[Rfam]
RNA: SAH (S-adenosyl-L-homocysteine) riboswitch aptamer
Organism: Ramlibacter tataouinensis
RNA sequence: CAACUCAAGGAGCGUUGCAGCGGCCGUCAUAUCGGCCGUCAGGCUUGAGCAAACCCGCAACGGCGCUCACCUCGG
Numbered sequence: 001c002a003a004c005u006c007a008a009g010g011a012g013c014g015u016u017g018c019a020g021c022g023g024c025c026g027u028c029a030u031a032u033c034g035g036c037c038g039u040c041a042g043g044c045u046u047g048a049g050c051a052a053a054c055c056c057g058c059a060a061c062g063g064c065g066c067u068c069a070c071c072u073c074g075g
Base pairs, nucleotide, nucleotide: 004049005048006047007046008045021038022037023036024035025034026033
Dot-bracket structure: ...(((((............((((((......))))))......)))))..........................